[Rfam]
RNA sequence: AAUCUAAAUAGAGGUGCGCUGAAGAUGAGUAGAUCUUUUCGAAAACUGCCAGGGGGCGGGAAAAGAGAGAAAGGCUGAUGCGCCGAAGCUUUUGCCACCCCCCUUUGGCGGCAGAGGCUGGGAUUGACGUGAAGAACCAAAAUCCUGUCAUCUAAGGCCUUGCGCCUUUUGUGGAGUGCUAUUUACGAU
Numbered sequence: 001a002a003u004c005u006a007a008a009u010a011g012a013g014g015u016g017c018g019c020u021g022a023a024g025a026u027g028a029g030u031a032g033a034u035c036u037u038u039u040c041g042a043a044a045a046c047u048g049c050c051a052g053g054g055g056g057c058g059g060g061a062a063a064a065g066a067g068a069g070a071a072a073g074g075c076u077g078a079u080g081c082g083c084c085g086a087a088g089c090u091u092u093u094g095c096c097a098c099c100c101c102c103c104u105u106u107g108g109c110g111g112c113a114g115a116g117g118c119u120g121g122g123a124u125u126g127a128c129g130u131g132a133a134g135a136a137c138c139a140a141a142a143u144c145c146u147g148u149c150a151u152c153u154a155a156g157g158c159c160u161u162g163c164g165c166c167u168u169u170u171g172u173g174g175a176g177u178g179c180u181a182u183u184u185a186c187g188a189u
Base pairs, nucleotide, nucleotide: 006184007183008182009181010180011179016083017082018081019080023076024075034066035065036064037063038062039061087119088118089117090116091115092114093113094112095111096110098108120146121145122144123143124142125141129137130136148174149173150172151171154168155167156166